[Rfam]
RNA sequence: UGCUUUUUUCGCCCAGGCGGAGCUCGACCGCCGCUUCAAGUCCUGAUGGCCUUCAUCGACCAGCAUCGUGCGGUCUACGGAGCCGAGCCGAUUUGCAGGGUGCUGCAGAUCGCUCCA
Numbered sequence: 001u002g003c004u005u006u007u008u009u010c011g012c013c014c015a016g017g018c019g020g021a022g023c024u025c026g027a028c029c030g031c032c033g034c035u036u037c038a039a040g041u042c043c044u045g046a047u048g049g050c051c052u053u054c055a056u057c058g059a060c061c062a063g064c065a066u067c068g069u070g071c072g073g074u075c076u077a078c079g080g081a082g083c084c085g086a087g088c089c090g091a092u093u094u095g096c097a098g099g100g101u102g103c104u105g106c107a108g109a110u111c112g113c114u115c116c117a
Base pairs, nucleotide, nucleotide: 016032017031018030019029020028079116080115081114082113089112090111092109093108094107095106096105097104098103
ALIL pseudoknot: a 117-nucleotide RNA sequence from Massilia sp. Root351.
The family's consensus secondary structure is taken from published work.
Lineage of the source: Bacteria > Pseudomonadati > Pseudomonadota > Burkholderiales > Massilia.
The family's RNA type in Rfam is cis-regulatory element.